[Rfam]
The family of this 134-nucleotide sequence from Sus scrofa is "Small nucleolar RNA SNORA70".
Rfam links the family to the GO terms RNA processing and nucleolus.
From the family's description: snoRNA U70 seems to be exclusive to mammals and is a member of the H/ACA class of snoRNA which contain H (ANANNA) and ACA box motifs. H/ACA box snoRNAs are involved in the conversion of uridines to pseudouridines (5-ribosyluracil) a constituent of structural RNAs (transfer, ribosomal, small nuclear, and small nucleolar).
A search with the family's covariance model found it, with a score of 94 bits.
RNA sequence: UUGCAGCCAGUGAAGCUGGCUGUGCCCUUUUCCCCGUGGGGGCCCCGUGUGGAUGGCUGCAAACAGCAGCCUCCUUCGUAGCAUGUGUACCCUGUUGCCUCUGUGGGUUGCCCUAGGGGAUCUUGGAGAAAGUC
Numbered sequence: 001u002u003g004c005a006g007c008c009a010g011u012g013a014a015g016c017u018g019g020c021u022g023u024g025c026c027c028u029u030u031u032c033c034c035c036g037u038g039g040g041g042g043c044c045c046c047g048u049g050u051g052g053a054u055g056g057c058u059g060c061a062a063a064c065a066g067c068a069g070c071c072u073c074c075u076u077c078g079u080a081g082c083a084u085g086u087g088u089a090c091c092c093u094g095u096u097g098c099c100u101c102u103g104u105g106g107g108u109u110g111c112c113c114u115a116g117g118g119g120a121u122c123u124u125g126g127a128g129a130a131a132g133u134c
Stems, first nucleotide, its partner, number of pairs: 002052001004051002019048002022045001025042004078121002088110002091107003
The family's consensus secondary structure was predicted with PFOLD. Rfam classes the family as an H/ACA-box small nucleolar RNA.